Rfam assigns this 122-nucleotide sequence from Gossypium schwendimanii to the family "MIR7504 microRNA precursor family".
RNA sequence: AAUAGGAGAAUGACAAAUCACAUUUUUCCUCUUGAUUUUUAGCAUUCUUAGUUGGAUUUGAAUUUUUUAGGAGGAAAAGACUGAAAAUCAGGGAGAAAAAUAUGAUUUGUCAUUCUCCUAUU
Dot-bracket structure: ((((((((((((((((((((.((((((..((((((((((.((..((.(..........................).))..)).))))))))))..)))))).))))))))))))))))))))
It scores 92 bits against the family's covariance model.